[Rfam]
Overview
antisense RNA of dnaA mRNA: an 81-nucleotide sequence from Xenorhabdus szentirmaii. The literature on the family includes a 2013 paper in PLoS One by Dadzie et al., "Identification and characterization of a cis-encoded antisense RNA associated with the replication process of Salmonella enterica serovar Typhi". A search with the family's covariance model found it, with a score of 67 bits.
Nucleotides: 081
Stems, first nucleotide, its partner, number of pairs: 004043003009038001011036001013034001016032001018030001020029002051078004056074001061072003
Number, partner (000 for none) and nucleotide at each position: 001000u002000u003000u004043u005042g006041c007000a008000u009038u010000g011036g012000c013034u014000u015000u016032g017000c018030g019000u020029g021028c022000c023000a024000u025000g026000a027000u028021g029020c030018u031000a032016u033000u034013g035000c036011c037000a038009a039000c040000g041006g042005c043004a044000u045000g046000c047000a048000a049000a050000a051078g052077g053076u054075g055000g056074g057000u058000u059000u060000u061072a062071c063070c064000c065000a066000g067000u068000c069000c070063g071062g072061u073000u074056c075054c076053g077052c078051c079000a080000u081000a
The organism belongs to Xenorhabdus szentirmaii, within Bacteria. The family's consensus secondary structure was predicted with RNAfold.